[Rfam]
RNA sequence: CUUGACCGACCCGAGCCAGGCGGGUUCGGCGCGGUCCUGGCCGUAGGUGGCCAGCAGGGCCUGGGCCUC
Number, nucleotide and partner (000 for none) at each position: 001c000002u000003u000004g000005a000006c000007c000008g000009a000010c000011c000012c000013g000014a000015g021016c020017c000018a000019g000020g016021c015022g000023g000024g000025u000026u064027c063028g000029g000030c000031g000032c059033g000034g000035u000036c000037c054038u053039g052040g000041c050042c049043g048044u000045a000046g000047g000048u043049g042050g041051c000052c039053a038054g037055c000056a000057g000058g000059g032060c000061c000062u000063g027064g026065g000066c000067c000068u000069c000
Background:
A member of the RNA family "ASpks TB sRNA" from Actinokineospora bangkokensis, 69 nucleotides long. A search with the family's covariance model found it, with a score of 62 bits.